mir-1 microRNA precursor family: a 71-nucleotide RNA sequence from Ladona fulva. This family represents the microRNA (miRNA) mir-1 family. miRNAs are transcribed as ~70nt precursors (modelled here) and subsequently processed by the Dicer enzyme to give a ~22nt product. In this case the mature sequence comes from the 3' arm of the precursor. Rfam 15.1 lists 4,474 matches to the family in 965 species. Rfam links the family to the GO terms RISC complex and miRNA-mediated post-transcriptional gene silencing. A reference for the family is Ambros (2001), "microRNAs: tiny regulators with great potential", Cell. The source organism's lineage runs through Eukaryota, Bilateria, Panarthropoda, Palaeoptera and Ladona.
[Rfam]
RNA sequence: AAUUGAAAUGCGUACUUCGUAUUUUCCACAAAAGUUCAACUUGUGGAAAAUACGAAGUACGCAUUUCAAUU
Numbered sequence: 001a002a003u004u005g006a007a008a009u010g011c012g013u014a015c016u017u018c019g020u021a022u023u024u025u026c027c028a029c030a031a032a033a034g035u036u037c038a039a040c041u042u043g044u045g046g047a048a049a050a051u052a053c054g055a056a057g058u059a060c061g062c063a064u065u066u067c068a069a070u071u
Stems, first nucleotide, its partner, number of pairs: 007065018026046005